[Rfam]
RNA: Glycine riboswitch aptamer
Organism: Novosphingobium fluoreni
RNA sequence: UAGCGAUACUCUGGAAAGUGCCGAUCCCCGUCCGGGGGCGGCCGCCGAAGGUGUAACCCCGAUCCGCUUUUUGCGGGAACCGGGGGAAAGCUCUCAGGCUUCCGUGACAGAGGGGGCACC
Number, nucleotide and partner (000 for none) at each position: 001u000002a000003g000004c000005g000006a000007u114008a000009c112010u111011c110012u109013g108014g000015a000016a000017a000018g000019u000020g042021c041022c040023g039024a000025u000026c000027c000028c000029c000030g000031u000032c000033c000034g000035g000036g000037g000038g000039c023040g022041g021042c020043c000044g099045c098046c097047g095048a094049a000050g000051g093052u000053g091054u000055a000056a000057c086058c085059c084060c083061g000062a000063u000064c000065c000066g000067c000068u000069u000070u000071u000072u000073g000074c000075g000076g000077g000078a000079a000080c000081c000082g000083g060084g059085g058086g057087a000088a000089a000090g000091c053092u000093c051094u048095c047096a000097g046098g045099c044100u000101u000102c000103c000104g000105u000106g000107a000108c013109a012110g011111a010112g009113g000114g007115g000116g000117c000118a000119c000120c000